[Rfam]
RNA: Bacterial small subunit ribosomal RNA, nucleotides 1 to 525
RNA sequence: UAAUAAAAAAAAUGGACAAAACUAUAGGAUAGGCCACUAAUUCAAGUGCAGUAAGAUUGUAAGGAAGUAAUUACGUUUUAGAAACUGACCAGAAUGUCUAAACCACCAUAAUUUUCUUUCAACCAGUCAGCAAAUUGGUUGAUGGAUGAAGUAUCCAAUAUGUCAAGUUGAUGACAAGCCACCUCCGUGAGGCCACCUUCUUGCAAGACCUUAGCUGAUUCAACACCAACACUUUCAUCUCUUAAAGUCAGCUAAAGGCGAUGAUCAGUAGCUGGUCCGAGAGGAUGAUCAGCCACACUGGGACUGAGACACGGCCCAGACUCCUACGGGAGGCAGCAGUGGGGAAUUUUCCACAAUGGGCGAAAGCCUGACGGAGCAAUGUCGCGUGAAGGUAGAAGGCCUAUGGGUCAUGAACUUCUUUUCCCGGAGAAGAAGCAAUGACGGUAUCCGGGGAAUAAGCAUUGGCUAACUCUGUGCCAGCCGCCACGGUAAGACAGAGGAUGCAAGCGUUAUCCGGAAUGAUUG
Numbered sequence: 001u002a003a004u005a006a007a008a009a010a011a012a013u014g015g016a017c018a019a020a021a022c023u024a025u026a027g028g029a030u031a032g033g034c035c036a037c038u039a040a041u042u043c044a045a046g047u048g049c050a051g052u053a054a055g056a057u058u059g060u061a062a063g064g065a066a067g068u069a070a071u072u073a074c075g076u077u078u079u080a081g082a083a084a085c086u087g088a089c090c091a092g093a094a095u096g097u098c099u100a101a102a103c104c105a106c107c108a109u110a111a112u113u114u115u116c117u118u119u120c121a122a123c124c125a126g127u128c129a130g131c132a133a134a135u136u137g138g139u140u141g142a143u144g145g146a147u148g149a150a151g152u153a154u155c156c157a158a159u160a161u162g163u164c165a166a167g168u169u170g171a172u173g174a175c176a177a178g179c180c181a182c183c184u185c186c187g188u189g190a191g192g193c194c195a196c197c198u199u200c201u202u203g204c205a206a207g208a209c210c211u212u213a214g215c216u217g218a219u220u221c222a223a224c225a226c227c228a229a230c231a232c233u234u235u236c237a238u239c240u241c242u243u244a245a246a247g248u249c250a251g252c253u254a255a256a257g258g259c260g261a262u263g264a265u266c267a268g269u270a271g272c273u274g275g276u277c278c279g280a281g282a283g284g285a286u287g288a289u290c291a292g293c294c295a296c297a298c299u300g301g302g303a304c305u306g307a308g309a310c311a312c313g314g315c316c317c318a319g320a321c322u323c324c325u326a327c328g329g330g331a332g333g334c335a336g337c338a339g340u341g342g343g344g345a346a347u348u349u350u351c352c353a354c355a356a357u358g359g360g361c362g363a364a365a366g367c368c369u370g371a372c373g374g375a376g377c378a379a380u381g382u383c384g385c386g387u388g389a390a391g392g393u394a395g396a397a398g399g400c401c402u403a404u405g406g407g408u409c410a411u412g413a414a415c416u417u418c419u420u421u422u423c424c425c426g427g428a429g430a431a432g433a434a435g436c437a438a439u440g441a442c443g444g445u446a447u448c449c450g451g452g453g454a455a456u457a458a459g460c461a462u463u464g465g466c467u468a469a470c471u472c473u474g475u476g477c478c479a480g481c482c483g484c485c486a487c488g489g490u491a492a493g494a495c496a497g498a499g500g501a502u503g504c505a506a507g508c509g510u511u512a513u514c515c516g517g518a519a520u521g522a523u524u525g
Stems, first nucleotide, its partner, number of pairs: 119142009149159001172267002176265001178259003271293004275286004298319005321332004349375001351374002357370005388418004398409004423452006432442001459504005470499005480487001